[Rfam]
RNA sequence: GCUGGGCACAGUGGUGCACACCUGUAGUCCCAGCUACUCGAGAUGCUGAGGCAGGAGGAUUGCUCAAGUCCAGGCAUUCUAGGCUAUCGUGCACUAUGCAGAUCAGAUUUCCACACUUAAUUUGGCAUGAAUAUGACUGGCAGUCGCCAGGGAACAGGGGAAACACCAGUUUGCCUAAGGAGGGGUGAAUUGGCCAAGGUCAGAAAUGGAGCAGGUCAACUCUUGUGUUAAUCAGUGGUAGGAUGAUGCCUGUGAAUAGCCACUGUACUCCAGCUUGGGCAACAGAGUGAGACUCCCUGUUUU
Numbered sequence: 001g002c003u004g005g006g007c008a009c010a011g012u013g014g015u016g017c018a019c020a021c022c023u024g025u026a027g028u029c030c031c032a033g034c035u036a037c038u039c040g041a042g043a044u045g046c047u048g049a050g051g052c053a054g055g056a057g058g059a060u061u062g063c064u065c066a067a068g069u070c071c072a073g074g075c076a077u078u079c080u081a082g083g084c085u086a087u088c089g090u091g092c093a094c095u096a097u098g099c100a101g102a103u104c105a106g107a108u109u110u111c112c113a114c115a116c117u118u119a120a121u122u123u124g125g126c127a128u129g130a131a132u133a134u135g136a137c138u139g140g141c142a143g144u145c146g147c148c149a150g151g152g153a154a155c156a157g158g159g160g161a162a163a164c165a166c167c168a169g170u171u172u173g174c175c176u177a178a179g180g181a182g183g184g185g186u187g188a189a190u191u192g193g194c195c196a197a198g199g200u201c202a203g204a205a206a207u208g209g210a211g212c213a214g215g216u217c218a219a220c221u222c223u224u225g226u227g228u229u230a231a232u233c234a235g236u237g238g239u240a241g242g243a244u245g246a247u248g249c250c251u252g253u254g255a256a257u258a259g260c261c262a263c264u265g266u267a268c269u270c271c272a273g274c275u276u277g278g279g280c281a282a283c284a285g286a287g288u289g290a291g292a293c294u295c296c297c298u299g300u301u302u303u
Stems, first nucleotide, its partner, number of pairs: 001046002004023003028043002048303008057294001060290006068280007079273002082270002085267003089263003094259004099254001104252003108248001110246001111242002115239003122231007130172002134168002140166001144161002147158002150155001174180002181224006191218005200209003
Metazoan signal recognition particle RNA: a 303-nucleotide RNA sequence from Neotoma lepida. It is annotated as a non-coding RNA gene. Rfam describes the family as follows. The signal recognition particle (SRP) is a universally conserved ribonucleoprotein. It is involved in the co-translational targeting of proteins to membranes. The eukaryotic SRP consists of a 300-nucleotide 7S RNA and six proteins: SRPs 72, 68, 54, 19, 14, and 9. Archaeal SRP consists of a 7S RNA and homologues of the eukaryotic SRP19 and SRP54 proteins. Eukaryotic and archaeal 7S RNAs have very similar secondary structures, as represented by this family. Eight helical elements fold into the Alu and S domains, separated by a long linker region. The Alu domain is thought to mediate the peptide chain elongation retardation function of the SRP. The universally conserved helix which interacts with the SRP54 M domain mediates signal sequence recognition. In eukaryotes and archaea, the SRP19-helix 6 complex is thought to be involved in SRP assembly and stabilises helix 8 for SRP54 binding. The Signal Recognition Particle Database (SRPDB) provides compilations of SRP components, with phylogenetic data and structural illustrations. Many sequences below the threshold for this family are clearly closely related, but are most likely to be SRP RNA derived pseudogenes. The human genome in particular is known to contain a large amount of SRP RNA related sequence, including Alu repeats. While the threshold of this family is set high so as to minimise the number of hits to such regions, it is likely that some remain. The family's consensus secondary structure is taken from published work. The family is grouped with related families in Rfam's "SRP clan". It scores 127 bits against the family's covariance model.